[Rfam]
RNA sequence: UUUCGUGUGAGGAGUGCGGACGCUUCUCAGGGUCGAAACAAGGACAGACUCCUGAGCUCGUCCGAUU
Number, nucleotide and partner (000 for none) at each position: 001u000002u000003u000004c000005g000006u000007g000008u000009g000010a000011g000012g000013a000014g000015u064016g000017c000018g063019g062020a061021c060022g059023c000024u000025u000026c056027u000028c000029a053030g052031g051032g049033u048034c047035g000036a000037a000038a000039c000040a000041a000042g000043g000044a000045c000046a000047g034048a033049c032050u000051c031052c030053u029054g000055a000056g026057c000058u000059c022060g021061u020062c019063c018064g015065a000066u000067u000